[Rfam]
RNA sequence: UGGGUGGGAAGAGAGCAGAGUGCCUGAAGAAUGGCUCCUCUGUGAAUAACACAUCCAACAGCAACUUGAGCUUAUUCUUCACAGGUGGCAGGAUACUGUGACUUUCCUGUGACAUUAAGCCCAAUACU
Dot-bracket structure: .(((((.(......((((((.(((........)))..))))))......).))))).............(((...(.(..((.(((.((((....)))).))).....)).).)...)))........
Small nucleolar RNA SNORA11: a 128-nucleotide RNA from Pipistrellus kuhlii. U107 (SNORA11) is a member of the H/ACA class of snoRNAs that guide the sites of modification of uridines to pseudouridines. It is annotated as an H/ACA-box small nucleolar RNA. On this family, see Gu et al., Nucleic Acids Res 2005: "A novel experimental approach for systematic identification of box H/ACA snoRNAs from eukaryotes".